[Rfam]
RNA sequence: ACUGCCCUGGGAGCUGUCCUCGAUGUCGCUCUGGCAGCCCUCGUCGUUCAUGGAGCCCUGCUUGGUGACGCGGGGCGCCAGCAGCUUGAGCAGGUCGCCCAGC
Numbered sequence: 001a002c003u004g005c006c007c008u009g010g011g012a013g014c015u016g017u018c019c020u021c022g023a024u025g026u027c028g029c030u031c032u033g034g035c036a037g038c039c040c041u042c043g044u045c046g047u048u049c050a051u052g053g054a055g056c057c058c059u060g061c062u063u064g065g066u067g068a069c070g071c072g073g074g075g076c077g078c079c080a081g082c083a084g085c086u087u088g089a090g091c092a093g094g095u096c097g098c099c100c101a102g103c
Stems, first nucleotide, its partner, number of pairs: 002102003006094004011087006018077001019075003024070007033062005040055003
Dot-bracket structure: .(((.((((.((((((.((((..(((((((..(((((..(((..........)))..))))).)))))))..))).)....))))))...)))).....))).

Description: Rfam assigns this 103-nucleotide RNA sequence from Megalops atlanticus to the family "mir-2968 microRNA precursor family". The match comes from Rfam's covariance-model search (71 bits). A reference for the family is Gunaratne et al. (2011), "Song exposure regulates known and novel microRNAs in the zebra finch auditory forebrain", BMC Genomics. Gene Ontology terms of the family: RISC complex and miRNA-mediated post-transcriptional gene silencing. NCBI's taxonomy places the organism under Eukaryota, Craniata, Actinopteri, Neopterygii, Megalops. The family has 12 seed sequences and 469 matches in Rfam 15.1.